RNA sequence: GGCCAGGGGGAAAAAAGUGUUAUAAAUUAAAACAUAUAAUAUAGGCAAGCAAGGAGCUAGAACGAUUCGCAGUUAACCCUGGCC
Numbered sequence: 001g002g003c004c005a006g007g008g009g010g011a012a013a014a015a016a017g018u019g020u021u022a023u024a025a026a027u028u029a030a031a032a033c034a035u036a037u038a039a040u041a042u043a044g045g046c047a048a049g050c051a052a053g054g055a056g057c058u059a060g061a062a063c064g065a066u067u068c069g070c071a072g073u074u075a076a077c078c079c080u081g082g083c084c
Base pairs, nucleotide, nucleotide: 001084002083003082004081005080006079007078008077